[Rfam]
RNA: MIR390 microRNA precursor family
Organism: Hibiscus trionum
RNA sequence: UGGGAGAACCUAUAAAGCUCAGGAGGGAUAGCGCCAUCUCCGAGUUAUUGUUUUUUCUUUAAAAUAAACAUCGAUGGCGCUAUCUAUCCUGAGUUCCAUGGGUUCUUCUU
Dot-bracket structure: .........(.....(((((((((.((((((((((........................................)))))))))).))))))))).....).........
Numbered sequence: 001u002g003g004g005a006g007a008a009c010c011u012a013u014a015a016a017g018c019u020c021a022g023g024a025g026g027g028a029u030a031g032c033g034c035c036a037u038c039u040c041c042g043a044g045u046u047a048u049u050g051u052u053u054u055u056u057c058u059u060u061a062a063a064a065u066a067a068a069c070a071u072c073g074a075u076g077g078c079g080c081u082a083u084c085u086a087u088c089c090u091g092a093g094u095u096c097c098a099u100g101g102g103u104u105c106u107u108c109u110u
Stems, first nucleotide, its partner, number of pairs: 010101001016095009026085010